[Rfam]
RNA sequence: AUAAAAUUAAACUUGAACACUUCGUAUAAUAUUGGGGAUAUGGCCCAAGAGUUUCUACCAGACCACCGUAAAUGGUCUGACUACGAGUGAUUGUCAAUAGCCA
Number, nucleotide and partner (000 for none) at each position: 001a000002u000003a000004a000005a000006a000007u000008u000009a000010a000011a000012c000013u000014u000015g000016a000017a000018c089019a088020c087021u086022u000023c085024g084025u083026a082027u000028a000029a000030u050031a000032u048033u047034g046035g045036g044037g000038a000039u000040a000041u000042g000043g000044c036045c035046c034047a033048a032049g000050a030051g000052u000053u000054u000055c000056u000057a000058c000059c079060a078061g077062a076063c075064c074065a073066c000067c000068g000069u000070a000071a000072a000073u065074g064075g063076u062077c061078u060079g059080a000081c000082u026083a025084c024085g023086a021087g020088u019089g018090a000091u000092u000093g000094u000095c000096a000097a000098u000099a000100g000101c000102c000103a000
Shown here is a 103-nucleotide sequence from Allobacillus sp. SKP2-8, a member of the family "Purine riboswitch aptamer". The organism belongs to Allobacillus, within Bacteria. Pairs were carried over by alignment from the consensus structure, which is taken from published work. The match comes from Rfam's covariance-model search (89 bits).